[Rfam]
RNA sequence: CAGAUGGGACGACCCACCUGCGCUUCUUUUAUCCGGGGACGACCCUA
Numbered sequence: 001c002a003g004a005u006g007g008g009a010c011g012a013c014c015c016a017c018c019u020g021c022g023c024u025u026c027u028u029u030u031a032u033c034c035g036g037g038g039a040c041g042a043c044c045c046u047a
Base pairs, nucleotide, nucleotide: 001020002019003018005016006015007014008013035046036045037044038043
RNA: Guanidine-II riboswitch aptamer (mini-ykkC)